[Rfam]
RNA sequence: CCAGAUAAAGGCAAACCUCUCGAAAGAUUGGGACGCAAAGCCUCAGGUCUAAGGUUUUUAACUAUGAUAGCUGGGCUACCUAGA
Numbered sequence: 001c002c003a004g005a006u007a008a009a010g011g012c013a014a015a016c017c018u019c020u021c022g023a024a025a026g027a028u029u030g031g032g033a034c035g036c037a038a039a040g041c042c043u044c045a046g047g048u049c050u051a052a053g054g055u056u057u058u059u060a061a062c063u064a065u066g067a068u069a070g071c072u073g074g075g076c077u078a079c080c081u082a083g084a
Stems, first nucleotide, its partner, number of pairs: 003081002011036002016031002020027002034070001039077004044073003047068003
RNA: c-di-GMP-I-GGC riboswitch aptamer